[Rfam]
Rfam assigns this 160-nucleotide RNA from Aliikangiella marina to the family "TPP riboswitch aptamer (THI element)". Rfam describes the family as follows. Vitamin B(1) in its active form thiamin pyrophosphate (TPP) is an essential coenzyme that is synthesised by coupling of pyrimidine and thiazole moieties in bacteria. The match comes from Rfam's covariance-model search (59 bits). The family's consensus secondary structure is taken from published work. The literature on the family includes a 2006 paper in Science by Thore et al., "Structure of the eukaryotic thiamine pyrophosphate riboswitch with its regulatory ligand".
RNA sequence: AUCUUGCUCUCGGGGUGCCUGAAAUGUCGAUUUGACAUUUUGUUUUGCUGAGACGCGGGAAUGCUUAGGAAUCAAAGGUUUUCUAAUUCUUUAAGUCAUCCGCGAACCCGUAGUACCUGAUCCGAUUAGUAUCGGCGUAGGGAUGAGCCAAACUCGAAAA
Dot-bracket structure: .....((((.((((.(((..(......................)..))......(((((.......................................))))))..)))).....((((..((((......))))..))))...))))............